[Rfam]
RNA sequence: CGCUUCUAAAACAAUGAAAGCCCUGCCUCUCUUUCAUCCUUGCGACUCCUCGGCCGCGCCAGUGUGAAUUAGCCUGCUUUUCUAUUC
Numbered sequence: 001c002g003c004u005u006c007u008a009a010a011a012c013a014a015u016g017a018a019a020g021c022c023c024u025g026c027c028u029c030u031c032u033u034u035c036a037u038c039c040u041u042g043c044g045a046c047u048c049c050u051c052g053g054c055c056g057c058g059c060c061a062g063u064g065u066g067a068a069u070u071a072g073c074c075u076g077c078u079u080u081u082c083u084a085u086u087c
Stems, first nucleotide, its partner, number of pairs: 034067003039062002041058004046053002
The record is an 87-nucleotide RNA from Paenibacillus swuensis, which matches "BsrC" in Rfam. About the family: The 301 nucleotide sequence from Kouji Nakamura has been trimmed to a highly conserved ~85 nucleotide long core to form this family. The family has 29 seed sequences and 572 matches in Rfam 15.1. Taxonomically the source falls in Paenibacillus (Bacteria, Bacillota, Bacilli, Caryophanales). On this family, see Saito et al., Gene 2008: "Novel small RNA-encoding genes in the intergenic regions of Bacillus subtilis". It scores 73 bits against the family's covariance model. The family's RNA type in Rfam is small RNA.